A member of the RNA family "Glycine riboswitch aptamer" from Marinobacter gudaonensis, 120 nucleotides long.
Taxonomically the source falls in Marinobacter (Bacteria, Pseudomonadati, Pseudomonadales, Marinobacteraceae).
[Rfam]
RNA sequence: CACAUGUCUGCGGGAGAGAUCGGUCCACUUUCCAUGGGUUCAAAAUCCAUGAGCGAUGGUACCGGCGCCGAAGGAGCAACUGCCCCGGAAACUCUCAGGCAAAAGGACCGCUGACAUGAC
Dot-bracket structure: .....(((.((((......((((......................................)))).(((((..(((...(......)....))))).))).......)))).))).....

It scores 64 bits against the family's covariance model. Rfam describes the family as follows. This family represents the bacterial glycine riboswitch. Glycine riboswitches usually consist of two metabolite-binding aptamers domains with similar structures in tandem.